Shown here is a 120-nucleotide sequence from Paenacidovorax monticola, a member of the family "TPP riboswitch aptamer (THI element)". A reference for the family is Warner et al. (2014), "Validating fragment-based drug discovery for biological RNAs: lead fragments bind and remodel the TPP riboswitch specifically", Chem Biol. It scores 63 bits against the family's covariance model.

RNA sequence: GCGCCUGCUCCGGGGUGUGCGAAUGCGCUGAGAUGCGGGACGUCUGGAAACGGACAGGCCUGCGAACCCGACGAACUUGAUCCGGUUCAUACCGGCGGAAGAAGAGCCGACCUUUUGUCU
Dot-bracket structure: ......((((((((.(((((....))))......(((((...................))))))..)))).....(((...((((......))))...)))..)))).............